[Rfam]
RNA sequence: GCGUGGGUCGGCCUGCUGUGUACGGGAAUCAGCGGGCCGGGGGACGCCGUCGCCUUCAAUCCCCGUGGGUGACGGCCCGGUCCGGGAGGCGGACUGCGCCUCCCGGGCUGCU
Numbered sequence: 001g002c003g004u005g006g007g008u009c010g011g012c013c014u015g016c017u018g019u020g021u022a023c024g025g026g027a028a029u030c031a032g033c034g035g036g037c038c039g040g041g042g043g044a045c046g047c048c049g050u051c052g053c054c055u056u057c058a059a060u061c062c063c064c065g066u067g068g069g070u071g072a073c074g075g076c077c078c079g080g081u082c083c084g085g086g087a088g089g090c091g092g093a094c095u096g097c098g099c100c101u102c103c104c105g106g107g108c109u110g111c112u
Stems, first nucleotide, its partner, number of pairs: 001111002006078002009039010040045001047075009057065001079109013
Rfam assigns this 112-nucleotide RNA from Streptomyces clavuligerus to the family "Streptomyces RNA 4115". It scores 87 bits against the family's covariance model. Identified by deep sequencing of transcriptome at the end of exponential growth phase. Sequencing size consistent with notrthern blot size. Streptomyces specific.